[Rfam]
RNA sequence: AGCUGGUCUGAAUGCGGUGGUCUUUACAACUAAUUGAUCACAACCAGUAACAAGUUUCUUUGUUCCUUCUCCACUCUCACAGCUUCACUUGACUAGUCUUAU
Numbered sequence: 001a002g003c004u005g006g007u008c009u010g011a012a013u014g015c016g017g018u019g020g021u022c023u024u025u026a027c028a029a030c031u032a033a034u035u036g037a038u039c040a041c042a043a044c045c046a047g048u049a050a051c052a053a054g055u056u057u058c059u060u061u062g063u064u065c066c067u068u069c070u071c072c073a074c075u076c077u078c079a080c081a082g083c084u085u086c087a088c089u090u091g092a093c094u095a096g097u098c099u100u101a102u
Stems, first nucleotide, its partner, number of pairs: 002097007010090002014086001017080004028064003032060002
RNA: Y RNA
Organism: Macaca fascicularis